Shown here is a 35-nucleotide sequence from Chryseobacterium koreense, a member of the family "DUF805b RNA". Taxonomically the source falls in Chryseobacterium koreense (Bacteria, Pseudomonadati, Bacteroidota, Weeksellaceae). Rfam classes the family as a cis-regulatory element.
[Rfam]
RNA sequence: AGGGAAGAUACCGAAAAUCCCAAAAAGAGUAGGUA
Numbered sequence: 001a002g003g004g005a006a007g008a009u010a011c012c013g014a015a016a017a018u019c020c021c022a023a024a025a026a027g028a029g030u031a032g033g034u035a
Stems, first nucleotide, its partner, number of pairs: 002021004010034003
It scores 44 bits against the family's covariance model.